Shown here is a 92-nucleotide RNA sequence from Hevea brasiliensis, a member of the family "Small nucleolar RNA Z103". The base pairs follow the family's consensus structure, which was predicted with PFOLD. Rfam 15.1 lists 2,844 matches to the family in 233 species. Lineage of the source: Eukaryota > Spermatophyta > Mesangiospermae > Micrandreae > Hevea. For this family Rfam cites "The high diversity of snoRNAs in plants: identification and comparative study of 120 snoRNA genes from Oryza sativa" (Chen et al., Nucleic Acids Res, 2003).
[Rfam]
RNA sequence: AUGGAAGGGAUGAUUAUUUCCCCAGAUGAUCGAUGCUGAAUAUACUGUGCGAUUUUUCUCUUUUGAGAAUCCAAGCCAGUCUUCUGAUCCAU
Numbered sequence: 001a002u003g004g005a006a007g008g009g010a011u012g013a014u015u016a017u018u019u020c021c022c023c024a025g026a027u028g029a030u031c032g033a034u035g036c037u038g039a040a041u042a043u044a045c046u047g048u049g050c051g052a053u054u055u056u057u058c059u060c061u062u063u064u065g066a067g068a069a070u071c072c073a074a075g076c077c078a079g080u081c082u083u084c085u086g087a088u089c090c091a092u
Stems, first nucleotide, its partner, number of pairs: 001092005